[Rfam]
RNA sequence: CCGUGCUAGCCGGGGAGUUAGCGGUGCCCUGUAACCUGCAAUCCGCUGUAGCAGGGGUGAUGCCUGCCUGAGGCCUUAUCUCUUUAAGGUCUGCCCUUUGUAAGUGGCGAUGAGAAUCGGGUCUUACGCAAUAGAAGUUUACGAACCGUGUCAGGUCCGGAAGGAAGCAGCACUAAGUAAAUGUCUCUAUGUGCCGUAAGGGUGCCUAGUUUGAGCUAACUGCAAAGGUAACGCUUGGGGAGAAUUGUCGAAGGCAGGUGCACGG
Numbered sequence: 001c002c003g004u005g006c007u008a009g010c011c012g013g014g015g016a017g018u019u020a021g022c023g024g025u026g027c028c029c030u031g032u033a034a035c036c037u038g039c040a041a042u043c044c045g046c047u048g049u050a051g052c053a054g055g056g057g058u059g060a061u062g063c064c065u066g067c068c069u070g071a072g073g074c075c076u077u078a079u080c081u082c083u084u085u086a087a088g089g090u091c092u093g094c095c096c097u098u099u100g101u102a103a104g105u106g107g108c109g110a111u112g113a114g115a116a117u118c119g120g121g122u123c124u125u126a127c128g129c130a131a132u133a134g135a136a137g138u139u140u141a142c143g144a145a146c147c148g149u150g151u152c153a154g155g156u157c158c159g160g161a162a163g164g165a166a167g168c169a170g171c172a173c174u175a176a177g178u179a180a181a182u183g184u185c186u187c188u189a190u191g192u193g194c195c196g197u198a199a200g201g202g203u204g205c206c207u208a209g210u211u212u213g214a215g216c217u218a219a220c221u222g223c224a225a226a227g228g229u230a231a232c233g234c235u236u237g238g239g240g241a242g243a244a245u246u247g248u249c250g251a252a253g254g255c256a257g258g259u260g261c262a263c264g265g
Stems, first nucleotide, its partner, number of pairs: 001265006009058003012030004017025003035055005063258007072249003079243010092230002096227006104220002106217003114212004119207004123200006129191002132189004137182006148173004156165003
Shown here is a 265-nucleotide RNA sequence from Defluviitalea raffinosedens, a member of the family "Bacterial large signal recognition particle RNA".
It is annotated as a non-coding RNA gene.
Lineage of the source: Bacteria > Bacillota > Clostridia > Defluviitaleaceae > Defluviitalea.
The match comes from Rfam's covariance-model search (219 bits).